[Rfam]
RNA sequence: AAUAAAUUAAAUGCCUAAACUGGCAGAGUGCAAACAAUUUUGACUCAGAUCUAAAUGUUUGCACUGGCUGUUUAAACAUUUAAUUUGUU
Numbered sequence: 001a002a003u004a005a006a007u008u009a010a011a012u013g014c015c016u017a018a019a020c021u022g023g024c025a026g027a028g029u030g031c032a033a034a035c036a037a038u039u040u041u042g043a044c045u046c047a048g049a050u051c052u053a054a055a056u057g058u059u060u061g062c063a064c065u066g067g068c069u070g071u072u073u074a075a076a077c078a079u080u081u082a083a084u085u086u087g088u089u
Stems, first nucleotide, its partner, number of pairs: 001089013016074005022069003027065009037056004042051002
RNA: mir-759 microRNA precursor family